This 548-nucleotide part of an RNA from Cladonia borealis belongs to the Rfam family "Eukaryotic large subunit ribosomal RNA". The match comes from Rfam's covariance-model search (2810 bits). The base pairs follow the family's consensus structure, which is taken from published work. Gene Ontology terms of the family: structural constituent of ribosome and ribosome.
RNA sequence: GAGUCUAACAUCUAUGCAAGUGUUUGGGUGUCAAACCCAUGCGCGUAAUGAAAGUGAACGGAGGUGAGAACCCUUAAGGGCGCAUCAUCGACCGAUCCAGAUGUCUUCGGAUGGAUUUGAGUACGAGCAUAGCUGUUGGGACCCGAAAGAUGGUGAACUAUGCCUGAAUAGGGUGAAGCCAGAGGAAACUCUGGUGGAGGCUCGCAGCGGUUCUGACGUGCAAAUCGAUCGUCAAAUUUGGGUAUAGGGGCGAAAGACUAAUCGAACCAUCCCCCGUGAGUUGCCUUGUUUCAGGGUGCUACUGGUGGUUAAUCGGAGUAGAAUAAUAUCAUUCUACCCUCAGUCCUUCGGGGCAACAUCACUACUUGCAUGGACCUCUUUAGAAGCCUUGGGGCUUGUAGGGAGUAAUAUGCCGCAGGUCCUCCCUGGAGGAUCUGUUCACAGACCAAAUAGUGGUGGCCGAGGCUUACACAUCUCUAGAGCUUUGGUUUAGAUAUGGCCGAGUCCCUCCUCCUUCGAGGAGUUGGUAUCGACGCUAGUAGCUGGUU
Numbered sequence: 001g002a003g004u005c006u007a008a009c010a011u012c013u014a015u016g017c018a019a020g021u022g023u024u025u026g027g028g029u030g031u032c033a034a035a036c037c038c039a040u041g042c043g044c045g046u047a048a049u050g051a052a053a054g055u056g057a058a059c060g061g062a063g064g065u066g067a068g069a070a071c072c073c074u075u076a077a078g079g080g081c082g083c084a085u086c087a088u089c090g091a092c093c094g095a096u097c098c099a100g101a102u103g104u105c106u107u108c109g110g111a112u113g114g115a116u117u118u119g120a121g122u123a124c125g126a127g128c129a130u131a132g133c134u135g136u137u138g139g140g141a142c143c144c145g146a147a148a149g150a151u152g153g154u155g156a157a158c159u160a161u162g163c164c165u166g167a168a169u170a171g172g173g174u175g176a177a178g179c180c181a182g183a184g185g186a187a188a189c190u191c192u193g194g195u196g197g198a199g200g201c202u203c204g205c206a207g208c209g210g211u212u213c214u215g216a217c218g219u220g221c222a223a224a225u226c227g228a229u230c231g232u233c234a235a236a237u238u239u240g241g242g243u244a245u246a247g248g249g250g251c252g253a254a255a256g257a258c259u260a261a262u263c264g265a266a267c268c269a270u271c272c273c274c275c276g277u278g279a280g281u282u283g284c285c286u287u288g289u290u291u292c293a294g295g296g297u298g299c300u301a302c303u304g305g306u307g308g309u310u311a312a313u314c315g316g317a318g319u320a321g322a323a324u325a326a327u328a329u330c331a332u333u334c335u336a337c338c339c340u341c342a343g344u345c346c347u348u349c350g351g352g353g354c355a356a357c358a359u360c361a362c363u364a365c366u367u368g369c370a371u372g373g374a375c376c377u378c379u380u381u382a383g384a385a386g387c388c389u390u391g392g393g394g395c396u397u398g399u400a401g402g403g404a405g406u407a408a409u410a411u412g413c414c415g416c417a418g419g420u421c422c423u424c425c426c427u428g429g430a431g432g433a434u435c436u437g438u439u440c441a442c443a444g445a446c447c448a449a450a451u452a453g454u455g456g457u458g459g460c461c462g463a464g465g466c467u468u469a470c471a472c473a474u475c476u477c478u479a480g481a482g483c484u485u486u487g488g489u490u491u492a493g494a495u496a497u498g499g500c501c502g503a504g505u506c507c508c509u510c511c512u513c514c515u516u517c518g519a520g521g522a523g524u525u526g527g528u529a530u531c532g533a534c535g536c537u538a539g540u541a542g543c544u545g546g547u548u
Stems, first nucleotide, its partner, number of pairs: 005139006012132006020044003025039005048055002063089005071080002091122002093119003096115003102109002142546002145543001149536001151535002158247011169235001171203004178195007207232004212228002215226002249525003